Background:
Shown here is a 199-nucleotide sequence from Setaria italica, a member of the family "MIR1435 microRNA precursor family". Taxonomically the source falls in Setaria (Eukaryota, Streptophyta, Liliopsida, Poaceae). Its family is annotated with RISC complex and miRNA-mediated post-transcriptional gene silencing in the Gene Ontology.

[Rfam]
Nucleotides: 199
Base pairs, nucleotide, nucleotide: 005194006193007192008191009190011188012187013186014185015184016183017182018181019180020179021178022177023176024175025174026173031168032167033166034165035164045154046153047152048151050149051148052147056142057141059139060138061137062136063135064134065133066132067131068130072126073125074124075123076122077121
Number, partner (000 for none) and nucleotide at each position: 001000u002000a003000c004000u005194u006193u007192u008191g009190u010000c011188c012187u013186a014185a015184g016183u017182c018181a019180a020179a021178c022177u023176u024175c025174u026173c027000u028000a029000a030000c031168u032167u033166u034165g035164a036000c037000c038000a039000a040000g041000u042000u043000u044000a045154u046153a047152g048151a049000c050149a051148a052147a053000u054000a055000c056142a057141u058000c059139a060138a061137c062136a063135u064134c065133u066132a067131u068130a069000a070000c071000a072126u073125c074124a075123g076122a077121u078000u079000a080000c081000c082000u083000u084000c085000u086000u087000u088000a089000a090000a091000u092000c093000c094000a095000u096000c097000a098000u099000g100000a101000a102000a103000u104000c105000u106000c107000u108000u109000g110000c111000u112000a113000g114000u115000g116000u117000a118000u119000u120000u121077a122076u123075u124074u125073g126072g127000u128000a129000u130068u131067g132066u133065a134064g135063a136062u137061g138060u139059u140000a141057a142056u143000a144000u145000a146000u147052u148051u149050u150000u151048u152047c153046u154045a155000u156000a157000a158000a159000c160000u161000u162000g163000g164035u165034c166033a167032a168031a169000g170000u171000c172000a173026g174025a175024g176023a177022a178021g179020u180019u181018u182017g183016a184015c185014u186013u187012a188011g189000a190009a191008c192007a193006a194005a195000a196000c197000u198000a199000a